A member of the RNA family "MIR6274 microRNA precursor family" from Prunus dulcis, 107 nucleotides long. Rfam 15.1 lists 342 matches to the family in 8 species.
RNA sequence: AGAUAGUAUUGUUUUGCUAUCUUUGGGCAAUAACACAAUGAUAUGUGAAAAAAUUAUCGUAUGUGUCAUUGUAUUAUUGGUCAAAAAUAACAAAAAGUAAUAUAUCC
Numbered sequence: 001a002g003a004u005a006g007u008a009u010u011g012u013u014u015u016g017c018u019a020u021c022u023u024u025g026g027g028c029a030a031u032a033a034c035a036c037a038a039u040g041a042u043a044u045g046u047g048a049a050a051a052a053a054u055u056a057u058c059g060u061a062u063g064u065g066u067c068a069u070u071g072u073a074u075u076a077u078u079g080g081u082c083a084a085a086a087a088u089a090a091c092a093a094a095a096a097g098u099a100a101u102a103u104a105u106c107c
Stems, first nucleotide, its partner, number of pairs: 002106004012095005018089003022085005028079006035072013050057001